GcvB RNA: a 179-nucleotide sequence from Mannheimia varigena.

RNA sequence: CCAUACUUAGAUGGAUAGUUGUAGAAUUCAUUUCUAUUCCUAAAUUUUUAAGUAUGAUGUUGUGUUUGCAUAUUGGUCUAGGAAACUAGACUAGAGUAACGAAAGUUACUCGUUUCACUUCCUGUAUAUUUUGAACCGUAUUGGUUUAUAACCGCUCACUUUGGGCGGUUUUUUUCUAU
Numbered sequence: 001c002c003a004u005a006c007u008u009a010g011a012u013g014g015a016u017a018g019u020u021g022u023a024g025a026a027u028u029c030a031u032u033u034c035u036a037u038u039c040c041u042a043a044a045u046u047u048u049u050a051a052g053u054a055u056g057a058u059g060u061u062g063u064g065u066u067u068g069c070a071u072a073u074u075g076g077u078c079u080a081g082g083a084a085a086c087u088a089g090a091c092u093a094g095a096g097u098a099a100c101g102a103a104a105g106u107u108a109c110u111c112g113u114u115u116c117a118c119u120u121c122c123u124g125u126a127u128a129u130u131u132u133g134a135a136c137c138g139u140a141u142u143g144g145u146u147u148a149u150a151a152c153c154g155c156u157c158a159c160u161u162u163g164g165g166c167g168g169u170u171u172u173u174u175u176c177u178a179u
Base pairs, nucleotide, nucleotide: 009048010047011046016043021037022036023035024034025033026032074093075092076091077090078089079088080087081086095110096109097108098107099106100105126147128145129144130143148172150170151169152168153167154166155165
Annotation:
The family's consensus secondary structure is taken from published work. On this family, see Urbanowski et al., Mol Microbiol 2000: "The gcvB gene encodes a small untranslated RNA involved in expression of the dipeptide and oligopeptide transport systems in Escherichia coli". The gcvB gene encodes a small untranslated RNA involved in expression of the dipeptide and oligopeptide transport systems in Escherichia coli. Included several unknown homologues in alignment (Bateman A pers obs). It base-pairs with SorC. This interaction triggers the degradation of GcvB by RNase E, alleviating the GcvB-mediated mRNA repression of other amino acid-related transport and metabolic genes. The family's RNA type in Rfam is non-coding RNA gene. The match comes from Rfam's covariance-model search (98 bits).